RNA sequence: GUCGAAUCAGCCCGAAACCUUGUCUCAACCUGCACAUUUACUAUCAGGUGAGCAAAGUUUCAGGUGUAUUUGAUG
Numbered sequence: 001g002u003c004g005a006a007u008c009a010g011c012c013c014g015a016a017a018c019c020u021u022g023u024c025u026c027a028a029c030c031u032g033c034a035c036a037u038u039u040a041c042u043a044u045c046a047g048g049u050g051a052g053c054a055a056a057g058u059u060u061c062a063g064g065u066g067u068a069u070u071u072g073a074u075g
Stems, first nucleotide, its partner, number of pairs: 002073006010065003014061002017058002020055002024052004029048003

A member of the RNA family "mir-87 microRNA precursor family" from Argiope bruennichi, 75 nucleotides long.
A search with the family's covariance model found it, with a score of 53 bits.
Its family is annotated with miRNA-mediated post-transcriptional gene silencing and RISC complex in the Gene Ontology.
The family has 44 seed sequences and 420 matches in Rfam 15.1.
The organism belongs to Argiope, within Eukaryota.